[Rfam]
RNA sequence: UGCCCUUGUGUUUGCUUUUGUUUAACUUGUGGGCAGAAACUUAUAAACAGGUGCAAAAAAACUAAAUUCUCUUUGCAAUGUAGGAUUUACUGUUUAGUAUGAGUUUUAAUACGUGUAAGAGGGAAUACU
Numbered sequence: 001u002g003c004c005c006u007u008g009u010g011u012u013u014g015c016u017u018u019u020g021u022u023u024a025a026c027u028u029g030u031g032g033g034c035a036g037a038a039a040c041u042u043a044u045a046a047a048c049a050g051g052u053g054c055a056a057a058a059a060a061a062c063u064a065a066a067u068u069c070u071c072u073u074u075g076c077a078a079u080g081u082a083g084g085a086u087u088u089a090c091u092g093u094u095u096a097g098u099a100u101g102a103g104u105u106u107u108a109a110u111a112c113g114u115g116u117a118a119g120a121g122g123g124a125a126u127a128c129u
Stems, first nucleotide, its partner, number of pairs: 001055003005051005011045001014040001016038006026031001066126005072119004081108009
The record is a 129-nucleotide RNA from Tupaia belangeri, which matches "Small nucleolar RNA SNORA40" in Rfam.
The family's consensus secondary structure was predicted with RNAalifold.
The match comes from Rfam's covariance-model search (89 bits).
The snoRNA ACA 40 belongs to the H/ACA family of snoRNAs and guides the pseudouridylation of 28S rRNA subunit at position U4565. NB This family has a high threshold value to exclude a large number of closely related sequences that do not appear to have conserved H and ACA boxes, and may be pseudogenes.
NCBI's taxonomy places the organism under Eukaryota, Metazoa, Craniata, Gnathostomata, Tupaia belangeri.